[Rfam]
RNA sequence: AAAAAGGGCUUCUGCCGUGUGUGGCACGGGGGGAGUCGUGUGCUUCCCCCGCGGAAUCGACAUCAAGAGAUUUCGGAAGCACAAUUUUUGUGAGAGGGGGCUGCCGGUAACCGCUUGUUCUGGCACCCUA
Numbered sequence: 001a002a003a004a005a006g007g008g009c010u011u012c013u014g015c016c017g018u019g020u021g022u023g024g025c026a027c028g029g030g031g032g033g034a035g036u037c038g039u040g041u042g043c044u045u046c047c048c049c050c051g052c053g054g055a056a057u058c059g060a061c062a063u064c065a066a067g068a069g070a071u072u073u074c075g076g077a078a079g080c081a082c083a084a085u086u087u088u089u090g091u092g093a094g095a096g097g098g099g100g101c102u103g104c105c106g107g108u109a110a111c112c113g114c115u116u117g118u119u120c121u122g123g124c125a126c127c128c129u130a
Stems, first nucleotide, its partner, number of pairs: 008080005013026005027051010052075007098128003103124005109119003
Description
The record is a 130-nucleotide RNA sequence from Buphagus erythrorhynchus, which matches "U11 spliceosomal RNA" in Rfam. The base pairs follow the family's consensus structure, which is taken from published work. The organism belongs to Buphagus, within Eukaryota. Rfam classes the family as a spliceosomal small nuclear RNA.